[Rfam]
RNA sequence: GGAUAGCACUGUUUUGCUAUUCCCAGCUAAUAACACAAUGACACGUGAAAAAAUUAUUACAUAUAUCAUUGUGUUAUUAGCCGGAGAUAGCAAAAAGUGGUAUCC
Dot-bracket structure: .((((......(((((((((..((.((((((((((((((((.(.(((.((......)).))).).)))))))))))))))).))..))))))))).....)))).

The record is a 105-nucleotide RNA from Prunus yedoensis, which matches "MIR6274 microRNA precursor family" in Rfam. Lineage of the source: Eukaryota > Viridiplantae > Tracheophyta > Spermatophyta > Prunus yedoensis. It scores 82 bits against the family's covariance model. The family has 2 seed sequences and 342 matches in Rfam 15.1.